Guanidine-I riboswitch aptamer: a 100-nucleotide RNA sequence from Ruminiclostridium hungatei.
Its family is annotated with regulation of gene expression in the Gene Ontology.

[Rfam]
RNA sequence: AAAAAAGUUUUAUAGGGUUCCGCAGUUCUGCAAAGCUCUGGUCUGGACCGAGAUAAAACCACAGUACCUGUGUACACGGAAGGAUAAAAGCCUGGGAGAU
Numbered sequence: 001a002a003a004a005a006a007g008u009u010u011u012a013u014a015g016g017g018u019u020c021c022g023c024a025g026u027u028c029u030g031c032a033a034a035g036c037u038c039u040g041g042u043c044u045g046g047a048c049c050g051a052g053a054u055a056a057a058a059c060c061a062c063a064g065u066a067c068c069u070g071u072g073u074a075c076a077c078g079g080a081a082g083g084a085u086a087a088a089a090g091c092c093u094g095g096g097a098g099a100u
Stems, first nucleotide, its partner, number of pairs: 007059006015049002020046002022043001023040003028035001060072005075095001077098001081093003
The base pairs follow the family's consensus structure.